[Rfam]
RNA sequence: UAACAACGAGGUCAGAAAGGCACCUGACGCACCUCUUAGAGGUAACUGAGAUGUUGGAUACGCCGCCCAACCGUUUGUUA
Dot-bracket structure: ((((((((..(((((...[[[..))))).(((((.....))))....)....(((((....]]]..)))))))).)))))
This 80-nucleotide sequence belongs to the Rfam family "skipping-rope RNA". It is one of the family's seed sequences. Pairs were carried over by alignment from the consensus structure, which is taken from published work.